[Rfam]
RNA sequence: AUGUGACCUAUGGACUUCCCUUUGUUAUCCUAUGCCUGGACUCAAAAAAGGGGCUGGGAGGGCAAAGGGUUGCCCAGUUGUCAUAC
Numbered sequence: 001a002u003g004u005g006a007c008c009u010a011u012g013g014a015c016u017u018c019c020c021u022u023u024g025u026u027a028u029c030c031u032a033u034g035c036c037u038g039g040a041c042u043c044a045a046a047a048a049a050g051g052g053g054c055u056g057g058g059a060g061g062g063c064a065a066a067g068g069g070u071u072g073c074c075c076a077g078u079u080g081u082c083a084u085a086c
Stems, first nucleotide, its partner, number of pairs: 018069005024063002028059005034054004